[Rfam]
RNA sequence: UGUGAAAACAUCAUUGAGUGCAGCAUUGAUGAAAAACGAUUUCGAGUCGAUCUUAAUUACUUGAUUUCAAGUAGAUCUUACUUAAGUUUGAAUCGAUUUUUAUCAACGCUGCAUUCAAUUAUGUUUUUG
Dot-bracket structure: .....((((((.((((((((((((.(((.((((((.............................................................)))))).))).)))))))))))).))))))...

The record is a 129-nucleotide RNA sequence from Chenopodium quinoa, which matches "MIR397 microRNA precursor family" in Rfam. A search with the family's covariance model found it, with a score of 71 bits.